[Rfam]
RNA sequence: AUGCGUGCGGUGAUGAUACUAUUAUGUGGACUAGAGUUUCUGAUCUGGGUAUUAACUCAGAAGUUGAUUACAAAACCCUUGGCUGUCUGAGCACACCU
Numbered sequence: 001a002u003g004c005g006u007g008c009g010g011u012g013a014u015g016a017u018a019c020u021a022u023u024a025u026g027u028g029g030a031c032u033a034g035a036g037u038u039u040c041u042g043a044u045c046u047g048g049g050u051a052u053u054a055a056c057u058c059a060g061a062a063g064u065u066g067a068u069u070a071c072a073a074a075a076c077c078c079u080u081g082g083c084u085g086u087c088u089g090a091g092c093a094c095a096c097c098u
Stems, first nucleotide, its partner, number of pairs: 001098001003096001005094004039067002044062001045060005
RNA: Small nucleolar RNA Z157/R69/R10